[Rfam]
This 148-nucleotide RNA from Prodigiosinella confusarubida belongs to the Rfam family "Molybdenum/Tungsten riboswitch aptamer (Moco RNA motif)". NCBI's taxonomy places the organism under Bacteria, Pseudomonadati, Pseudomonadota, Pectobacteriaceae, Prodigiosinella.

RNA sequence: UAUAGGAUCAAACUCCUAGCCUUGGUGCCUACGUUAUGUAUGAGUUUGCAUAAUAGGGUGCCCUGGCCGUGGCUCUUGUGGUCACCAGGGUGCAGGGUAGAAAUGCCGGCAUCUCCCGUAUUUGGAAAGGUGUUUAUGGUGAGUCAAC
Numbered sequence: 001u002a003u004a005g006g007a008u009c010a011a012a013c014u015c016c017u018a019g020c021c022u023u024g025g026u027g028c029c030u031a032c033g034u035u036a037u038g039u040a041u042g043a044g045u046u047u048g049c050a051u052a053a054u055a056g057g058g059u060g061c062c063c064u065g066g067c068c069g070u071g072g073c074u075c076u077u078g079u080g081g082u083c084a085c086c087a088g089g090g091u092g093c094a095g096g097g098u099a100g101a102a103a104u105g106c107c108g109g110c111a112u113c114u115c116c117c118g119u120a121u122u123u124g125g126a127a128a129g130g131u132g133u134u135u136a137u138g139g140u141g142a143g144u145c146a147a148c
Stems, first nucleotide, its partner, number of pairs: 003142001011134003015130002019067003024062006033054008069085005088114006096107004115125002

Gene Ontology terms of the family: regulation of gene expression, tungstate binding and molybdenum ion binding.